A member of the RNA family "Small nucleolar RNA SNORA3/SNORA45 family" from Oryzias melastigma, 132 nucleotides long. Rfam describes the family as follows. The members of this family belong to the H/ACA class of snoRNAs which are thought to guide the sites of modification of uridines to pseudouridines. This family includes mouse snoMBI-28 and human homologues ACA3 (SNORA3) and ACA3-2 (SNORA45). Both ACA3 and ACA3-2 share the same host gene. MBI-28, ACA3 and ACA3-2 are all predicted to guide the pseudouridylation of residues in 28S rRNA.
RNA sequence: GGCGAGGCUAGAGUCACACCUGGAUAUGAUUGGUUGUCCUGGUGUGCUAUAGCGCUCGCAGAGAAACCUCAGAGUUUAUUCAUUGGCUGUCGUCUCCUCGUGGGCCGGCCAAUCACCGACUCUGAUACACUG
Numbered sequence: 001g002g003c004g005a006g007g008c009u010a011g012a013g014u015c016a017c018a019c020c021u022g023g024a025u026a027u028g029a030u031u032g033g034u035u036g037u038c039c040u041g042g043u044g045u046g047c048u049a050u051a052g053c054g055c056u057c058g059c060a061g062a063g064a065a066a067c068c069u070c071a072g073a074g075u076u077u078a079u080u081c082a083u084u085g086g087c088u089g090u091c092g093u094c095u096c097c098u099c100g101u102g103g104g105c106c107g108g109c110c111a112a113u114c115a116c117c118g119a120c121u122c123u124g125a126u127a128c129a130c131u132g
Stems, first nucleotide, its partner, number of pairs: 002059005007053003012048002015046006023038004070124007082113005088107002091104001093103002
The family has 6 seed sequences and 2,080 matches in Rfam 15.1.
Taxonomically the source falls in Oryzias (Eukaryota, Neoteleostei, Beloniformes, Adrianichthyoidei).